[Rfam]
RNA sequence: GCUAUUGUAGAGUAGGAGGAGAGAGGUGUUACCUUAUGAGCUGCCACCUCUCCCAUUCUCUCUGCAGGAGC
Number, nucleotide and partner (000 for none) at each position: 001g071002c070003u069004a000005u067006u066007g065008u064009a063010g062011a000012g000013u000014a059015g058016g057017a056018g054019g053020a000021g052022a051023g050024a049025g048026g047027u046028g045029u000030u043031a042032c000033c040034u039035u000036a000037u000038g000039a034040g033041c000042u031043g030044c000045c028046a027047c026048c025049u024050c023051u022052c021053c019054c018055a000056u017057u016058c015059u014060c000061u000062c010063u009064g008065c007066a006067g005068g000069a003070g002071c001

The record is a 71-nucleotide RNA sequence from Malurus cyaneus, which matches "mir-1759 microRNA precursor family" in Rfam. A search with the family's covariance model found it, with a score of 77 bits. Taxonomically the source falls in Malurus cyaneus (Eukaryota, Metazoa, Euteleostomi, Maluridae).